[Rfam]
RNA sequence: AUUUUUUUUUUUUUUUUAUAAAAAGGAGGGAAUUCUUUUUUUUUUUUUUUGUAAUAAUGUUAGCCGAGUACACACAAGAAGAAAAAUAAUUGCACUAGAUUGUAAAGAUGGGUGGACCUCUUUCUUAAUGCCCAGUGUCCUUUCCCUUAAGAUUUGGUUUAAUAGAU
Numbered sequence: 001a002u003u004u005u006u007u008u009u010u011u012u013u014u015u016u017u018a019u020a021a022a023a024a025g026g027a028g029g030g031a032a033u034u035c036u037u038u039u040u041u042u043u044u045u046u047u048u049u050u051g052u053a054a055u056a057a058u059g060u061u062a063g064c065c066g067a068g069u070a071c072a073c074a075c076a077a078g079a080a081g082a083a084a085a086a087u088a089a090u091u092g093c094a095c096u097a098g099a100u101u102g103u104a105a106a107g108a109u110g111g112g113u114g115g116a117c118c119u120c121u122u123u124c125u126u127a128a129u130g131c132c133c134a135g136u137g138u139c140c141u142u143u144c145c146c147u148u149a150a151g152a153u154u155u156g157g158u159u160u161a162a163u164a165g166a167u
Base pairs, nucleotide, nucleotide: 005068006067010063011062016057017056018055021049022048024046025045026044027043028042029041030040031039091161092160094158095157096156097155098154099153111136113134114133115132
Annotation
Rfam assigns this 167-nucleotide RNA sequence from Pipistrellus kuhlii to the family "Small nucleolar RNA SNORA81". Gene Ontology terms of the family: nucleolus and RNA processing.